[Rfam]
RNA sequence: GGAAGGGCGGUGAGAAUCCGCCCCGCCGGAGAGUGCCGAAGGGUUCCGCAGCGAUGCUCGUCAGCUGCGGGUGAGGCGGUCCUCAGCUGAGGGCGGAAGCCGUAGGCGAGGGGCAGCCGGUCAAGAUUCCGGCCCCACCGGCGCCCGAUCGAGCGAUGGGGGGACGCCAGGCCGAGGGUCCGGCGGUCGGAGGGACCGUCCAAGCCAGAGGGCGUGGCCGAGGGAAAGCCCGGCCGGAAGCGCCGACUGGCGAGUGCGAGGCGGGGGUGCGGCCCUGCCGAGCGGAUCUGGCGGUCUGGCCGAGAAAAGCCUCUAGCGAGGGCGGCGGUGACCGUACCGCAAACCGACACAGGUCGGCUGGUGGAGGACACCGAGGCGGA
Dot-bracket structure: ....((((((.......))))))((((.......((((..((...((((((...((.....)).))))))......((((((...(((.(.(((....))).).)))...))...(((((........)))))..(((((.(((((......((...((((....((((..(((..(((((((((((.......))))))((.((((...(((.((((((.((.....)))))))).....)))...))))...))...(((((((......)))))))....)))))...)))..)))).........))))..))..))))).)))))))))..)).....((......)).)))).((((.....))))..))))..
Numbered sequence: 001g002g003a004a005g006g007g008c009g010g011u012g013a014g015a016a017u018c019c020g021c022c023c024c025g026c027c028g029g030a031g032a033g034u035g036c037c038g039a040a041g042g043g044u045u046c047c048g049c050a051g052c053g054a055u056g057c058u059c060g061u062c063a064g065c066u067g068c069g070g071g072u073g074a075g076g077c078g079g080u081c082c083u084c085a086g087c088u089g090a091g092g093g094c095g096g097a098a099g100c101c102g103u104a105g106g107c108g109a110g111g112g113g114c115a116g117c118c119g120g121u122c123a124a125g126a127u128u129c130c131g132g133c134c135c136c137a138c139c140g141g142c143g144c145c146c147g148a149u150c151g152a153g154c155g156a157u158g159g160g161g162g163g164a165c166g167c168c169a170g171g172c173c174g175a176g177g178g179u180c181c182g183g184c185g186g187u188c189g190g191a192g193g194g195a196c197c198g199u200c201c202a203a204g205c206c207a208g209a210g211g212g213c214g215u216g217g218c219c220g221a222g223g224g225a226a227a228g229c230c231c232g233g234c235c236g237g238a239a240g241c242g243c244c245g246a247c248u249g250g251c252g253a254g255u256g257c258g259a260g261g262c263g264g265g266g267g268u269g270c271g272g273c274c275c276u277g278c279c280g281a282g283c284g285g286a287u288c289u290g291g292c293g294g295u296c297u298g299g300c301c302g303a304g305a306a307a308a309g310c311c312u313c314u315a316g317c318g319a320g321g322g323c324g325g326c327g328g329u330g331a332c333c334g335u336a337c338c339g340c341a342a343a344c345c346g347a348c349a350c351a352g353g354u355c356g357g358c359u360g361g362u363g364g365a366g367g368a369c370a371c372c373g374a375g376g377c378g379g380a
Stems, first nucleotide, its partner, number of pairs: 005023006024378004035358004041338002046070006055063002077334004081112002086107003090103001092101003116133005136330005142324005153317002158313004166300004172294003177288005182200006201256002204251004211244003215236006222230002260279007344353002360372004
The record is a 380-nucleotide part of an RNA from Thermomicrobium roseum, which matches "Bacterial large subunit ribosomal RNA" in Rfam.
Rfam links the family to the GO terms ribosome and structural constituent of ribosome.
The source organism's lineage runs through Bacteria, Thermomicrobia, Thermomicrobiales, Thermomicrobium and Thermomicrobium roseum.
Its Rfam clan is "LSU clan".